RNA: Bacteroidales small SRP
Organism: Draconibacterium orientale
RNA sequence: GUCGCCGGGUAAGUCCUGUGCGACCAGCUCCCGCCGAAUCCCCCCAGGGUCGGAAGGCAGCAAGGGUAGGCGGUUGUAGCGGUGCGACACAGGUAGCUUACCCACUU
Numbered sequence: 001g002u003c004g005c006c007g008g009g010u011a012a013g014u015c016c017u018g019u020g021c022g023a024c025c026a027g028c029u030c031c032c033g034c035c036g037a038a039u040c041c042c043c044c045c046a047g048g049g050u051c052g053g054a055a056g057g058c059a060g061c062a063a064g065g066g067u068a069g070g071c072g073g074u075u076g077u078a079g080c081g082g083u084g085c086g087a088c089a090c091a092g093g094u095a096g097c098u099u100a101c102c103c104a105c106u107u
Base pairs, nucleotide, nucleotide: 007103008102009101010100011099012098013097014096016092017091018090019089020088021086022085023083024082